[Rfam]
RNA sequence: UGGCUAUGAUGACAUUCUUAGGACACCUCUUGAUUAAGAAUGAUGAGAAUACUCGUUUUCUCUGAGCCAU
Numbered sequence: 001u002g003g004c005u006a007u008g009a010u011g012a013c014a015u016u017c018u019u020a021g022g023a024c025a026c027c028u029c030u031u032g033a034u035u036a037a038g039a040a041u042g043a044u045g046a047g048a049a050u051a052c053u054c055g056u057u058u059u060c061u062c063u064g065a066g067c068c069a070u
Base pairs, nucleotide, nucleotide: 001069002068003067004066
Rfam assigns this 70-nucleotide RNA sequence from Acrobeloides nanus to the family "Small nucleolar RNA SNORD58". Rfam describes the family as follows. snoRNA U58 is found in introns 1, 3 and 6 of the ribosomal protein RPL17 gene in humans. By type it is a C/D-box small nucleolar RNA. Its Rfam clan is "SNORD58 clan". Rfam 15.1 lists 2,484 matches to the family in 680 species. Gene Ontology terms of the family: nucleolus and RNA processing.